[Rfam]
RNA: mir-2796 microRNA precursor family
Organism: Orchesella cincta
RNA sequence: GAGUAGGGGCAGGGGUUUCUUUCGGCCUCCAGCCGUUAAAGCCAAGUUGUAGGCCGACGGAAACUACUUGCCUCUAUGG
Numbered sequence: 001g002a003g004u005a006g007g008g009g010c011a012g013g014g015g016u017u018u019c020u021u022u023c024g025g026c027c028u029c030c031a032g033c034c035g036u037u038a039a040a041g042c043c044a045a046g047u048u049g050u051a052g053g054c055c056g057a058c059g060g061a062a063a064c065u066a067c068u069u070g071c072c073u074c075u076a077u078g079g
Stems, first nucleotide, its partner, number of pairs: 005075004010070004014065007022057007030049003